[Rfam]
RNA sequence: UUCUUAUCAAGAGUGGCGGAGGGACUGGCCCUGUGAAGCCCGGCAACCACCAGAAUUAAUUCUGGAAGGUGCCAAUUCCACAAAGUGUAAUUGCUUUGAAAGAUGAGAG
Numbered sequence: 001u002u003c004u005u006a007u008c009a010a011g012a013g014u015g016g017c018g019g020a021g022g023g024a025c026u027g028g029c030c031c032u033g034u035g036a037a038g039c040c041c042g043g044c045a046a047c048c049a050c051c052a053g054a055a056u057u058a059a060u061u062c063u064g065g066a067a068g069g070u071g072c073c074a075a076u077u078c079c080a081c082a083a084a085g086u087g088u089a090a091u092u093g094c095u096u097u098g099a100a101a102g103a104u105g106a107g108a109g
Base pairs, nucleotide, nucleotide: 001109002108003107004106005105006104007103008102013041015040016039017038021031022030023029026080027079028078042073043072044071045070047069048068050065051064052063053062077101081098082097083096084095085094086093
Dot-bracket structure: ((((((((....(.(((...(((..[[[)))......))))((((.((.((((........))))..))))))...(]]]((((((......))))))..)))))))))
About this RNA: The record is a 109-nucleotide sequence from Salipaludibacillus agaradhaerens, which matches "SAM riboswitch aptamer (S box leader)" in Rfam. NCBI's taxonomy places the organism under Bacteria, Bacillati, Bacilli, Caryophanales, Salipaludibacillus.